Overview: mir-172 microRNA precursor family: a 109-nucleotide sequence from Gossypium armourianum. Lineage of the source: Eukaryota > Embryophyta > Magnoliopsida > Malvoideae > Gossypium. It scores 72 bits against the family's covariance model. The base pairs follow the family's consensus structure, which was predicted with PFOLD. Its family is annotated with RISC complex and miRNA-mediated post-transcriptional gene silencing in the Gene Ontology. Rfam's curators write: mir-172 has been experimentally verified in Arabidopsis thaliana. This family is thought to target mRNAs coding for APETALA2-like transcription factors. The mature sequence is excised from the 3' arm of the hairpin.
RNA sequence: UUAAUGGCCGAUGCAGCAUCAUCAAGAUUCUCAUGCUUCAAACAAAAGCUAUGGCCUGGCCGUACCAUCCUUUGCAUGUGAAUCUUGAAGAUGCUGCAUCAGCAAAAAA
Numbered sequence: 001u002u003a004a005u006g007g008c009c010g011a012u013g014c015a016g017c018a019u020c021a022u023c024a025a026g027a028u029u030c031u032c033a034u035g036c037u038u039c040a041a042a043c044a045a046a047a048g049c050u051a052u053g054g055c056c057u058g059g060c061c062g063u064a065c066c067a068u069c070c071u072u073u074g075c076a077u078g079u080g081a082a083u084c085u086u087g088a089a090g091a092u093g094c095u096g097c098a099u100c101a102g103c104a105a106a107a108a109a
Stems, first nucleotide, its partner, number of pairs: 010100011022088009032078002